[Rfam]
RNA sequence: AAAUCGCAUUGGGAUAGGAUGAUAGCGCACCUGGUCAUCGUCUCUCUCAGCUGCUCACUUGCUGUUCUAAGUGAUAAUACCGUUGUUUUUUUAGUGGGUAUUCUUUUACGCUUUCGUAGGAGCGAGUCCCACACUCUUGGAGCAAUCCGGGGUAGUGCCUAAACGCAUUUCUUCAACGUAAAA
Numbered sequence: 001a002a003a004u005c006g007c008a009u010u011g012g013g014a015u016a017g018g019a020u021g022a023u024a025g026c027g028c029a030c031c032u033g034g035u036c037a038u039c040g041u042c043u044c045u046c047u048c049a050g051c052u053g054c055u056c057a058c059u060u061g062c063u064g065u066u067c068u069a070a071g072u073g074a075u076a077a078u079a080c081c082g083u084u085g086u087u088u089u090u091u092u093a094g095u096g097g098g099u100a101u102u103c104u105u106u107u108a109c110g111c112u113u114u115c116g117u118a119g120g121a122g123c124g125a126g127u128c129c130c131a132c133a134c135u136c137u138u139g140g141a142g143c144a145a146u147c148c149g150g151g152g153u154a155g156u157g158c159c160u161a162a163a164c165g166c167a168u169u170u171c172u173u174c175a176a177c178g179u180a181a182a183a
Base pairs, nucleotide, nucleotide: 028053029052031050032049033048059181060180061179062178082177083176084175085174094132095131096130097129098128103124105122106121107120109119110117111116134157136155137154138152